[Rfam]
RNA: mir-7 microRNA precursor family
Organism: Cricetulus griseus
RNA sequence: AGGCCAGCCCCGCCUGGAAGACUAGUGAUUUUGUUGUUGUCUCUCUAUACUCAACAACAAGUCCCAGUCUACCACACGGUGCGGGUCC
Numbered sequence: 001a002g003g004c005c006a007g008c009c010c011c012g013c014c015u016g017g018a019a020g021a022c023u024a025g026u027g028a029u030u031u032u033g034u035u036g037u038u039g040u041c042u043c044u045c046u047a048u049a050c051u052c053a054a055c056a057a058c059a060a061g062u063c064c065c066a067g068u069c070u071a072c073c074a075c076a077c078g079g080u081g082c083g084g085g086u087c088c
Stems, first nucleotide, its partner, number of pairs: 002087004007082002010079003015074003019070005025065001027063005033058006